This 240-nucleotide RNA from Hoeflea marina belongs to the Rfam family "permuted transfer-messenger RNA".
The organism belongs to Hoeflea, within Bacteria.
A search with the family's covariance model found it, with a score of 142 bits.
For this family Rfam cites "BRUCE: a program for the detection of transfer-messenger RNA genes in nucleotide sequences" (Laslett et al., Nucleic Acids Res, 2002).
RNA sequence: GGCGAUAAAUGAGCGGUGAAAUAAACCAUUCGGACCCGGGGGCGGUACCCGGCGCCUCCACCACAAUCCGGCGAAACCGUCGGAUCUCAACGGCCACGGAUGCGGCCGGAUUGUGCUGGGGGCGAAACAGGAUCGACGAGGGUGUAAAGAUCGUCUUUUUGCUCGGCAUUGUACCACCGUUAUCGGACUAAACUUGUAGUUGCAAAUGACAACUAUGCGGAAGCUCGUCUCGCUGCUUAA
Number, nucleotide and partner (000 for none) at each position: 001g163002g162003c161004g160005a159006u000007a000008a000009a000010u000011g000012a000013g000014c153015g152016g151017u150018g000019a000020a000021a000022u000023a000024a000025a000026c142027c141028a000029u000030u139031c138032g137033g000034a000035c000036c052037c051038g050039g049040g048041g000042g000043c000044g000045g000046u000047a000048c040049c039050c038051g037052g036053c124054g123055c122056c121057u120058c119059c118060a000061c000062c000063a000064c000065a000066a000067u000068c000069c000070g000071g000072c000073g000074a000075a000076a000077c000078c000079g000080u000081c000082g000083g000084a000085u000086c000087u000088c000089a000090a000091c000092g000093g000094c000095c000096a000097c000098g000099g000100a000101u000102g000103c000104g000105g000106c000107c000108g000109g000110a000111u000112u000113g000114u000115g000116c000117u000118g059119g058120g057121g056122g055123c054124g053125a000126a000127a000128c000129a000130g000131g000132a000133u000134c000135g000136a000137c032138g031139a030140g000141g027142g026143u000144g000145u000146a000147a000148a000149g000150a017151u016152c015153g014154u000155c000156u000157u000158u000159u005160u004161g003162c002163u001164c179165g178166g177167c000168a000169u000170u000171g000172u000173a000174c000175c000176a000177c166178c165179g164180u000181u000182a000183u000184c000185g000186g000187a000188c000189u000190a000191a000192a000193c000194u000195u000196g000197u000198a000199g000200u000201u000202g000203c000204a000205a000206a000207u000208g000209a000210c000211a000212a000213c000214u000215a000216u000217g000218c000219g000220g000221a000222a000223g000224c000225u000226c000227g000228u000229c000230u000231c000232g000233c000234u000235g000236c000237u000238u000239a000240a000
Bacterial tmRNA, also known as 10Sa RNA or SsrA, is named for its dual tRNA and mRNA-like properties.